The record is a 76-nucleotide RNA sequence from Branchiostoma lanceolatum, which matches "mir-190 microRNA precursor family" in Rfam. Pairs were carried over by alignment from the consensus structure, which was predicted with RNAalifold. On this family, see Kloosterman et al., Nucleic Acids Res 2006: "Cloning and expression of new microRNAs from zebrafish".
RNA sequence: UGUCCUGGAUGAUAUGUUUGAUAUUUGGUUGUUACCUUCUAUCCAACCAAUAUAUCAAACAUAUGAUCCAAGGCCC
Numbered sequence: 001u002g003u004c005c006u007g008g009a010u011g012a013u014a015u016g017u018u019u020g021a022u023a024u025u026u027g028g029u030u031g032u033u034a035c036c037u038u039c040u041a042u043c044c045a046a047c048c049a050a051u052a053u054a055u056c057a058a059a060c061a062u063a064u065g066a067u068c069c070a071a072g073g074c075c076c
Base pairs, nucleotide, nucleotide: 005072006071008069012064013063014062015061016060017059018058019057020056021055022054023053024052027048028047029046030045031044

The match comes from Rfam's covariance-model search (58 bits). Its Rfam clan is "mir-50 clan".